Shown here is a 138-nucleotide RNA sequence from Sarcophilus harrisii, a member of the family "Small nucleolar RNA SNORA58". Its family is annotated with RNA processing and nucleolus in the Gene Ontology. ACA52 is a member of the H/ACA class of snoRNA that guide the sites of modification of uridines to pseudouridines. A search with the family's covariance model found it, with a score of 108 bits. The family is grouped with related families in Rfam's "SNORA44 clan". On this family, see Huttenhofer et al., EMBO J 2001: "RNomics: an experimental approach that identifies 201 candidates for novel, small, non-messenger RNAs in mouse". Rfam 15.1 lists 471 matches to the family in 320 species. It is annotated as an H/ACA-box small nucleolar RNA. The organism belongs to Sarcophilus, within Eukaryota.
[Rfam]
RNA sequence: GGGCACUCCCGUAGACCUUGCCUGACUCUGCCAAUAGUCAAGCAGGGGGGACAGUGUGUGCCAGAGAAAACAGAGCUUCUGUGAUCUAUGGCCGGCCAGCACUAUUGGUGGCUGGCUAUAUACAUUACUCUAACAUUU
Numbered sequence: 001g002g003g004c005a006c007u008c009c010c011g012u013a014g015a016c017c018u019u020g021c022c023u024g025a026c027u028c029u030g031c032c033a034a035u036a037g038u039c040a041a042g043c044a045g046g047g048g049g050g051a052c053a054g055u056g057u058g059u060g061c062c063a064g065a066g067a068a069a070a071c072a073g074a075g076c077u078u079c080u081g082u083g084a085u086c087u088a089u090g091g092c093c094g095g096c097c098a099g100c101a102c103u104a105u106u107g108g109u110g111g112c113u114g115g116c117u118a119u120a121u122a123c124a125u126u127a128c129u130c131u132a133a134c135a136u137u138u
Base pairs, nucleotide, nucleotide: 003061004060005059006058008056016047017046018045019044020043021042023040024039072131073130074129075128077127080124081123082122096115097114098113099112100111